Rfam assigns this 104-nucleotide sequence from Artemisia annua to the family "MIR168 microRNA precursor family".
Nucleotides: 104
Base pairs, nucleotide, nucleotide: 013091014090017086018085019084020083023080024079025078026077027076028075029074030073031072032071034069035068036067037066038065040063041062042061043060044059045058
Number, partner (000 for none) and nucleotide at each position: 001000g002000u003000u004000a005000c006000g007000g008000c009000u010000g011000u012000u013091u014090u015000g016000g017086a018085u019084u020083c021000g022000c023080u024079u025078g026077g027076u028075g029074c030073a031072g032071g033000u034069c035068g036067g037066g038065a039000a040063c041062g042061g043060u044059u045058u046000a047000u048000a049000u050000a051000u052000a053000a054000a055000a056000a057000a058045a059044a060043g061042c062041u063040g064000g065038u066037c067036c068035c069034g070000c071032c072031u073030u074029g075028c076027a077026u078025c079024a080023a081000c082000u083020g084019a085018a086017u087000c088000c089000g090014a091013a092000a093000c094000c095000a096000g097000c098000u099000g100000u101000a102000a103000a104000a

NCBI's taxonomy places the organism under Eukaryota, Embryophyta, Euphyllophyta, Magnoliopsida, Artemisia.